The record is a 135-nucleotide sequence from Helicobacter sp. TUL, which matches "purD RNA motif" in Rfam.
Lineage of the source: Bacteria > Epsilonproteobacteria > Campylobacterales > Helicobacteraceae > Helicobacter.
The match comes from Rfam's covariance-model search (55 bits).
By type it is a cis-regulatory element.
For this family Rfam cites "Identification of 22 candidate structured RNAs in bacteria using the CMfinder comparative genomics pipeline" (Weinberg et al., Nucleic Acids Res, 2007).

RNA sequence: GUAGCAUUGUAUGUGUGUUUUGGUAUUUUCGUUUGUAGCCUUGCAAGGUGAGAAUCUGCCCCUAAUUACGAUCUCUUAUCCCUGUAUUUUUACUUUUUUAGGCUUUGCUACAUUUAGAGUAACGCUUGUCUGGGU
Numbered sequence: 001g002u003a004g005c006a007u008u009g010u011a012u013g014u015g016u017g018u019u020u021u022g023g024u025a026u027u028u029u030c031g032u033u034u035g036u037a038g039c040c041u042u043g044c045a046a047g048g049u050g051a052g053a054a055u056c057u058g059c060c061c062c063u064a065a066u067u068a069c070g071a072u073c074u075c076u077u078a079u080c081c082c083u084g085u086a087u088u089u090u091u092a093c094u095u096u097u098u099u100a101g102g103c104u105u106u107g108c109u110a111c112a113u114u115u116a117g118a119g120u121a122a123c124g125c126u127u128g129u130c131u132g133g134g135u
Stems, first nucleotide, its partner, number of pairs: 003074002006072005022060004028054003038049004093102003